Shown here is a 107-nucleotide sequence from Clostridium aciditolerans, a member of the family "SAM riboswitch aptamer (S box leader)". Its family is annotated with regulation of gene expression in the Gene Ontology. The match comes from Rfam's covariance-model search (95 bits).
[Rfam]
RNA sequence: UUCUUAUCAAGAGAGGCUGAGGGACUGGCCCUAUGACGCCCGGCAACCUGAAUAUUUAUUAUUCAACGGUGCUAAUUCCAGCAGGUUAAAUACCUGAGAGAUGAGGA
Numbered sequence: 001u002u003c004u005u006a007u008c009a010a011g012a013g014a015g016g017c018u019g020a021g022g023g024a025c026u027g028g029c030c031c032u033a034u035g036a037c038g039c040c041c042g043g044c045a046a047c048c049u050g051a052a053u054a055u056u057u058a059u060u061a062u063u064c065a066a067c068g069g070u071g072c073u074a075a076u077u078c079c080a081g082c083a084g085g086u087u088a089a090a091u092a093c094c095u096g097a098g099a100g101a102u103g104a105g106g107a
Stems, first nucleotide, its partner, number of pairs: 001107008013041001015040003021031003025081004042073004047069002049065004077099001082096005